Description
The family of this 122-nucleotide RNA sequence from Turnera subulata is "MIR408 microRNA precursor family". The base pairs follow the family's consensus structure, which was predicted with WAR. NCBI's taxonomy places the organism under Eukaryota, Streptophyta, Streptophytina, Gunneridae, Turnera. On this family, see Sunkar and Zhu, Plant Cell 2004: "Novel and stress-regulated microRNAs and other small RNAs from Arabidopsis". The match comes from Rfam's covariance-model search (66 bits).
[Rfam]
RNA sequence: GAAAAGGAAGAGGCAGGAGCCAGGGAAGAGGCAGUGCAUGGGUAGAGCCAAAAACAGAUAAUUUCUGUUAGUAGUCCCAUCCAUGCUCUGCCUGUUCCCAGCCUUUUUGCCUGACUCUUUCA
Numbered sequence: 001g002a003a004a005a006g007g008a009a010g011a012g013g014c015a016g017g018a019g020c021c022a023g024g025g026a027a028g029a030g031g032c033a034g035u036g037c038a039u040g041g042g043u044a045g046a047g048c049c050a051a052a053a054a055c056a057g058a059u060a061a062u063u064u065c066u067g068u069u070a071g072u073a074g075u076c077c078c079a080u081c082c083a084u085g086c087u088c089u090g091c092c093u094g095u096u097c098c099c100a101g102c103c104u105u106u107u108u109g110c111c112u113g114a115c116u117c118u119u120u121c122a
Stems, first nucleotide, its partner, number of pairs: 017105003021101001023099005029093006036086006045076002